[Rfam]
Background:
Shown here is a 351-nucleotide sequence from Halocynthiibacter styelae, a member of the family "Alphaproteobacteria transfer-messenger RNA". The family is grouped with related families in Rfam's "tRNA clan". The family's RNA type in Rfam is non-coding RNA gene. On this family, see Williams and Bartel, RNA 1996: "Phylogenetic analysis of tmRNA secondary structure". The base pairs follow the family's consensus structure, which is taken from published work. Rfam describes the family as follows. Bacterial tmRNA, also known as 10Sa RNA or SsrA, is named for its dual tRNA and mRNA-like properties. The source organism's lineage runs through Bacteria, Pseudomonadati, Rhodobacterales, Paracoccaceae and Halocynthiibacter.
RNA sequence: CCCCUUUUCAAUCGCGAAGCACACACUUAUAUAACACCUGUCCUUCGGGACUAUGAACAUAAACGCGCUCGUAAUAAGCGGAUCGGACCCGGGGGCGGUACCCGGCGACUCCACCACCAUCCUUCAUUUGAGGAUUUUGGGGUCGAAACAGGAUCGACGGACGUCUAAAGGGGUUAGCUUUGUUUCGGUGAGAUACCACCGUUAUCGGUUCGAUUUAAGCUAGUUGCAAAUGACAACAAAGCUCCGGCAAUGGCUCUGGCUGCGUAAGCAGUUCGGGUCGCCGAAACUAAGCCCCUUCGCCUAGCCGCGUAGGGCGGGGUUCGCAGGUACCUGGCAACAGAAACCUGCACU
Numbered sequence: 001c002c003c004c005u006u007u008u009c010a011a012u013c014g015c016g017a018a019g020c021a022c023a024c025a026c027u028u029a030u031a032u033a034a035c036a037c038c039u040g041u042c043c044u045u046c047g048g049g050a051c052u053a054u055g056a057a058c059a060u061a062a063a064c065g066c067g068c069u070c071g072u073a074a075u076a077a078g079c080g081g082a083u084c085g086g087a088c089c090c091g092g093g094g095g096c097g098g099u100a101c102c103c104g105g106c107g108a109c110u111c112c113a114c115c116a117c118c119a120u121c122c123u124u125c126a127u128u129u130g131a132g133g134a135u136u137u138u139g140g141g142g143u144c145g146a147a148a149c150a151g152g153a154u155c156g157a158c159g160g161a162c163g164u165c166u167a168a169a170g171g172g173g174u175u176a177g178c179u180u181u182g183u184u185u186c187g188g189u190g191a192g193a194u195a196c197c198a199c200c201g202u203u204a205u206c207g208g209u210u211c212g213a214u215u216u217a218a219g220c221u222a223g224u225u226g227c228a229a230a231u232g233a234c235a236a237c238a239a240a241g242c243u244c245c246g247g248c249a250a251u252g253g254c255u256c257u258g259g260c261u262g263c264g265u266a267a268g269c270a271g272u273u274c275g276g277g278u279c280g281c282c283g284a285a286a287c288u289a290a291g292c293c294c295c296u297u298c299g300c301c302u303a304g305c306c307g308c309g310u311a312g313g314g315c316g317g318g319g320u321u322c323g324c325a326g327g328u329a330c331c332u333g334g335c336a337a338c339a340g341a342a343a344c345c346u347g348c349a350c351u
Base pairs, nucleotide, nucleotide: 040051041050042049043048055185056184057183058182059181065178066177067174068173069172070171079163080162083160084159085158089105090104091103092102093101106145107144108143109142110141111140112139186201187200188199189198192211193210195209196208197207317332318331319330320329323348324347325346326345327344328343